[Rfam]
RNA: mir-544 microRNA precursor family
RNA sequence: CUCAUCUGGAAAUCUUGUUAAAAUGCAGAUUACGAUUCAGUAGGUCUGGGAUGCGGGCCUAACAUUCUGCCUUUCUAACAAGCUCCCAGGUGAUGCUCU
Numbered sequence: 001c002u003c004a005u006c007u008g009g010a011a012a013u014c015u016u017g018u019u020a021a022a023a024u025g026c027a028g029a030u031u032a033c034g035a036u037u038c039a040g041u042a043g044g045u046c047u048g049g050g051a052u053g054c055g056g057g058c059c060u061a062a063c064a065u066u067c068u069g070c071c072u073u074u075c076u077a078a079c080a081a082g083c084u085c086c087c088a089g090g091u092g093a094u095g096c097u098c099u
Stems, first nucleotide, its partner, number of pairs: 003092003009086001011084001014082007021074003025070005031064001